[Rfam]
RNA sequence: CCCGUCUCGCGACGGGCCGGGAUGUGACCCUGGCCGGCCGACGCCGACGGCGUCGGUCGGGGGAGGCGACGGUCGAGGCCGAUCGCACCGAUCCGCGGUGCGACCGGGCCCGACCGCUGCCGAUCGGGUUGAACCACCAA
Numbered sequence: 001c002c003c004g005u006c007u008c009g010c011g012a013c014g015g016g017c018c019g020g021g022a023u024g025u026g027a028c029c030c031u032g033g034c035c036g037g038c039c040g041a042c043g044c045c046g047a048c049g050g051c052g053u054c055g056g057u058c059g060g061g062g063g064a065g066g067c068g069a070c071g072g073u074c075g076a077g078g079c080c081g082a083u084c085g086c087a088c089c090g091a092u093c094c095g096c097g098g099u100g101c102g103a104c105c106g107g108g109c110c111c112g113a114c115c116g117c118u119g120c121c122g123a124u125c126g127g128g129u130u131g132a133a134c135c136a137c138c139a140a
Stems, first nucleotide, its partner, number of pairs: 001016005019135002026130005

Shown here is a 140-nucleotide RNA, a member of the family "eL15-Euryarchaeota ribosomal protein leader".
Rfam classes the family as a cis-regulatory leader.
A reference for the family is Eckert and Weinberg (2020), "Discovery of 20 novel ribosomal leader candidates in bacteria and archaea", BMC Microbiol.